Annotation:
Shown here is a 78-nucleotide RNA from Terrapene triunguis, a member of the family "mir-16 microRNA precursor family". Gene Ontology terms of the family: RISC complex and miRNA-mediated post-transcriptional gene silencing. The source organism's lineage runs through Eukaryota, Deuterostomia, Euteleostomi, Cryptodira and Terrapene. On this family, see Jin et al., Mol Cell 2020: "Structural Basis for pri-miRNA Recognition by Drosha".

[Rfam]
RNA sequence: GCCUCACUCUAGCAGCACAAAGCAGCCAUUAACGCAGCCCUAACCACUUAUGGCCGCUCUGUGCUGCUUGAGGGAGGC
Numbered sequence: 001g002c003c004u005c006a007c008u009c010u011a012g013c014a015g016c017a018c019a020a021a022g023c024a025g026c027c028a029u030u031a032a033c034g035c036a037g038c039c040c041u042a043a044c045c046a047c048u049u050a051u052g053g054c055c056g057c058u059c060u061g062u063g064c065u066g067c068u069u070g071a072g073g074g075a076g077g078c
Stems, first nucleotide, its partner, number of pairs: 001078003005074001007072001010071001011068008020058001022057002025054005
Dot-bracket structure: (((.(.(..(((((((((.(.((.(((((....................))))).)))..))))))))..)).).)))